RNA sequence: GGAUGUGAGGGCGAUCUGGCUGCGACAUCUGUCACCCCAUUGAUCGCCAGGGUUGAUUCGGCUGAUCUGGCUGGCUAGGUGGGUGUCCCCUUCCUCCCUCACCGCUCCAUGUGCGUCCCUCCCGAAGCUGCGCGCUCGGUCGAAGAGGAUGACCUUCCCCGAUAGAGACGUACCGUUCAUCGGUCAAGGGUAUACGGUAGCUGCGCUCCCCUGCUAGAACCUCCAAAAUACUUACAUGGCUUUUUUGGAACCCAAGGACAUGAGAUUGUUGUCGCAAGAAGACUGAAUUACCCCUUU
Numbered sequence: 001g002g003a004u005g006u007g008a009g010g011g012c013g014a015u016c017u018g019g020c021u022g023c024g025a026c027a028u029c030u031g032u033c034a035c036c037c038c039a040u041u042g043a044u045c046g047c048c049a050g051g052g053u054u055g056a057u058u059c060g061g062c063u064g065a066u067c068u069g070g071c072u073g074g075c076u077a078g079g080u081g082g083g084u085g086u087c088c089c090c091u092u093c094c095u096c097c098c099u100c101a102c103c104g105c106u107c108c109a110u111g112u113g114c115g116u117c118c119c120u121c122c123c124g125a126a127g128c129u130g131c132g133c134g135c136u137c138g139g140u141c142g143a144a145g146a147g148g149a150u151g152a153c154c155u156u157c158c159c160c161g162a163u164a165g166a167g168a169c170g171u172a173c174c175g176u177u178c179a180u181c182g183g184u185c186a187a188g189g190g191u192a193u194a195c196g197g198u199a200g201c202u203g204c205g206c207u208c209c210c211c212u213g214c215u216a217g218a219a220c221c222u223c224c225a226a227a228a229u230a231c232u233u234a235c236a237u238g239g240c241u242u243u244u245u246u247g248g249a250a251c252c253c254a255a256g257g258a259c260a261u262g263a264g265a266u267u268g269u270u271g272u273c274g275c276a277a278g279a280a281g282a283c284u285g286a287a288u289u290a291c292c293c294c295u296u297u
Base pairs, nucleotide, nucleotide: 001108002107003106005102006101007100008099009098010097011096013093014092018090019089024087025086026085027084028083029082030081031080032079033078035074036073037070038069039068042067043066044065045064046062047061048060117170119167120166121165122139123138124137125136127135128134140162141161142160147158148157149156200273202271206268210264212262213261221256222255228246230244
RNA: 7SK RNA